Background
Small Cajal body specific RNA 15: a 130-nucleotide RNA from Hymenochirus boettgeri. Its family is annotated with RNA processing, nucleolus and Cajal body in the Gene Ontology. From the family's description: scaRNAs are a specific class of small nuclear RNAs which localise to the Cajal bodies and guide the modification of RNA polymerase II transcribed spliceosomal RNAs U1, U2, U4, U5 and U12.

RNA sequence: CUGGAGGACUAAGAAAGUGGGUGCAAUGAAGUGUCCUGCUAUCCACUGAUACUAUCCUCCCAUAGAACAUGGCAGAGGAACAGGUCUGUUUGCAUUGAGUACAACUGACCUACUUAAUCUGCCAACAUAU
Numbered sequence: 001c002u003g004g005a006g007g008a009c010u011a012a013g014a015a016a017g018u019g020g021g022u023g024c025a026a027u028g029a030a031g032u033g034u035c036c037u038g039c040u041a042u043c044c045a046c047u048g049a050u051a052c053u054a055u056c057c058u059c060c061c062a063u064a065g066a067a068c069a070u071g072g073c074a075g076a077g078g079a080a081c082a083g084g085u086c087u088g089u090u091u092g093c094a095u096u097g098a099g100u101a102c103a104a105c106u107g108a109c110c111u112a113c114u115u116a117a118u119c120u121g122c123c124a125a126c127a128u129a130u
Base pairs, nucleotide, nucleotide: 003060004059005058006057007056008055010051011050018045019044020043021042022041023039024038026034027033071123072122073121074120075119076118077115082111083110084109085108086107088105089104
For this family Rfam cites "Cajal body-specific small nuclear RNAs: a novel class of 2'-O-methylation and pseudouridylation guide RNAs" (Darzacq et al., EMBO J, 2002).